[Rfam]
Nucleotides: 345
Stems, first nucleotide, its partner, number of pairs: 001341009011331001012295007020039008044329003048326005053227004060255004065223001067221003070085005086110001087108008111218002116216002118212003133158002135154004140149003166184006185207001186205008231276004240267004247259004
Number, partner (000 for none) and nucleotide at each position: 001341u002340u003339u004338g005337g006336c007335a008334a009333u010000u011331a012295a013294a014293a015292g016291g017290c018289c019000g020039c021038u022037g023036u024035a025034a026033u027032g028000u029000u030000a031000a032027u033026a034025u035024u036023a037022u038021a039020g040000a041000g042000g043000a044329a045328c046327u047000u048326c049325c050324g051323a052322a053227c054226u055225c056224c057000a058000c059000a060255g061254g062253g063252c064000a065223c066000c067221g068220c069219g070085c071084c072083g073082c074081u075000u076000g077000a078000a079000a080000g081074g082073g083072c084071g085070g086110g087108g088107g089106u090105u091104u092103g093102g094101g095000c096000u097000a098000a099000a100000a101094u102093c103092c104091a105090a106089a107088c108087c109000a110086c111218g112217g113000a114000a115000a116216g117215u118212g119211c120210a121000a122000c123000a124000g125000a126000a127000a128000g129000u130000a131000u132000a133158c134157c135154g136153c137152c138151g139000c140149a141148a142147g143000c144000u145000u146000g147142c148141u149140u150000a151138c152137g153136g154135u155000a156000a157134g158133g159000g160000u161000g162000a163000a164000a165000g166184g167183g168182u169181g170180u171179g172000g173000u174000a175000a176000g177000a178000g179171c180170g181169c182168a183167c184166c185207g186205c187204a188203u189202c190201a191200g192199c193198g194000g195000c196000a197000a198193c199192g200191c201190u202189g203188a204187u205186g206000g207185c208000u209000a210120u211119g212118c213000a214000a215117a216116c217112c218111c219069c220068g221067c222000a223065g224056g225055g226054a227053g228000c229000a230000a231276g232275g233274c234273c235000a236000a237000a238000u239000u240267u241266g242265u243264g244000c245000a246000u247259a248258u249257g250256c251000u252063g253062c254061c255060c256250g257249c258248a259247u260000c261000a262000g263000a264243c265242a266241c267240a268000g269000a270000g271000u272000a273234g274233g275232c276231c277000g278000c279000u280000u281000a282000g283000a284000g285000a286000a287000a288000u289018g290017g291016u292015c293014u294013u295012u296000a297000u298000c299000c300000g301000a302000g303000g304000u305000u306000c307000g308000c309000c310000g311000a312000g313000g314000a315000a316000a317000c318000a319000g320000a321000a322052u323051u324050c325049g326048g327046g328045g329044u330000a331011u332000u333009a334008u335007u336006g337005c338004c339003a340002a341001a342000c343000a344000a345000a

The record is a 345-nucleotide sequence from Elusimicrobium minutum, which matches "Bacterial RNase P class A" in Rfam. The organism belongs to Elusimicrobium minutum, within Bacteria.